Record summary: isrD Hfq binding RNA: a 51-nucleotide RNA from Spermophilus dauricus. The base pairs follow the family's consensus structure, which was predicted with WAR.

RNA sequence: UCCUUUCACCUCAACAGUGGCUCAGGGGACCCCACUCUGGGGGCCUGUUUU
Numbered sequence: 001u002c003c004u005u006u007c008a009c010c011u012c013a014a015c016a017g018u019g020g021c022u023c024a025g026g027g028g029a030c031c032c033c034a035c036u037c038u039g040g041g042g043g044c045c046u047g048u049u050u051u
Stems, first nucleotide, its partner, number of pairs: 002026002009020002012017001027045002030042004